[Rfam]
A member of the RNA family "Bacterial RNase P class B" from Bulleidia extructa, 333 nucleotides long. Its family is annotated with tRNA processing, ribonuclease P activity and dimeric ribonuclease P complex in the Gene Ontology. The family is grouped with related families in Rfam's "RNaseP clan". Lineage of the source: Bacteria > Bacillati > Bacillota > Erysipelotrichia > Bulleidia extructa. It is annotated as a ribozyme. Pairs were carried over by alignment from the consensus structure, which is taken from published work. It scores 245 bits against the family's covariance model.
RNA sequence: UACAGAAGGCGGUCGCUGCCUUUAUGGUAGAGGAAAGUCCAUGCUCGCACCAUCUGCGAUGAUGGUAGUGUUUGUGCUGAUCCAAUUAAUAAGGUCAGGUAUCUUCGGAUAACGGCGGAGCAAUAUAGUCUACGGAGAAAUCUAUGAUUUGAGCCCUUAAGGUGUCACAGUGACGUAGUCUUUUCGAAAGAAAAGAAGUGGAACGAGAUAAACCCCACAAGCGAGAAACCCAAAUUUGGUAGGGGAAUUUUCAACUUUGAAAUGAAAAAGAAGAAAAGUAGUAAUACAGAUAAAUGGCUGCACUGGCAACAGGACAGAACAUGGCUUAUGCAU
Dot-bracket structure: ...(..(.((((((.(((((.....)))))....[[[.[[[[[(((((((((((......)))))).....(((((((((((..........))))))(((((....)))).)((.((........((((...(((....)))..)))).....)).....(((((............(((((((....)))))))..........)))..))))))))))))))...(((..........)))...(((((....................)))))(((....)))........)))))).(((....))).......]]]]]]]].)...)